[Rfam]
RNA: Selenocysteine transfer RNA
RNA sequence: GCCCGAAUGAGCUCCAGUGGUCUGGGGUGCAGGCUUCAAACCUGUAGACGACGAGAGGCGUAGAGGUUCGAUUCCUCCUUUCGGGU
Numbered sequence: 001g002c003c004c005g006a007a008u009g010a011g012c013u014c015c016a017g018u019g020g021u022c023u024g025g026g027g028u029g030c031a032g033g034c035u036u037c038a039a040a041c042c043u044g045u046a047g048a049c050g051a052c053g054a055g056a057g058g059c060g061u062a063g064a065g066g067u068u069c070g071a072u073u074c075c076u077c078c079u080u081u082c083g084g085g086u
Base pairs, nucleotide, nucleotide: 001086002085003084004083005082006081007080009078012027013026014025015024016023017022028046029045030044031043032042033041048061049060050059052057063077064076065075066074